[Rfam]
Nucleotides: 081
Stems, first nucleotide, its partner, number of pairs: 001081001003078002011036002016031006034067001039074003044070003047065003
Number, partner (000 for none) and nucleotide at each position: 001081c002000c003078c004077g005000a006000c007000a008000a009000a010000g011036c012035c013000a014000a015000a016031c017030c018029c019028u020027c021026c022000g023000c024000g025000a026021g027020g028019a029018g030017g031016g032000g033000a034067c035012g036011g037000a038000a039074a040073g041072u042000g043000a044070c045069g046068g047065a048064u049063c050000u051000u052000c053000c054000c055000g056000a057000a058000g059000u060000g061000a062000a063049g064048a065047u066000g067034g068046c069045c070044g071000a072041g073040c074039u075000g076000c077004c078003g079000a080000a081001g
The record is an 81-nucleotide sequence from Desulfuromonas soudanensis, which matches "c-di-GMP-I-GGC riboswitch aptamer" in Rfam. The base pairs follow the family's consensus structure, which is taken from published work. A search with the family's covariance model found it, with a score of 71 bits.